[Rfam]
Nucleotides: 073
Base pairs, nucleotide, nucleotide: 001072002071003070004069005068006067007066010025011024012023013022027043028042029041030040031039049065050064051063052062053061
Number, partner (000 for none) and nucleotide at each position: 001072g002071g003070g004069c005068u006067g007066g008000u009000g010025g011024c012023g013022a014000a015000a016000u017000u018000g019000g020000u021000a022013u023012c024011g025010c026000g027043c028042u029041a030040g031039a032000u033000u034000u035000c036000g037000g038000c039031u040030c041029u042028a043027g044000c045000g046000a047000u048000u049065g050064c051063g052062g053061g054000u055000u056000c057000g058000a059000g060000u061053c062052c063051c064050g065049u066007c067006u068005a069004g070003c071002u072001c073000u
Overview: The family of this 73-nucleotide RNA sequence from Verticillium dahliae is "tRNA". The base pairs follow the family's consensus structure, which is taken from published work. The organism belongs to Verticillium, within Eukaryota. Rfam describes the family as follows. Transfer RNA (tRNA) molecules are approximately 80 nucleotides in length.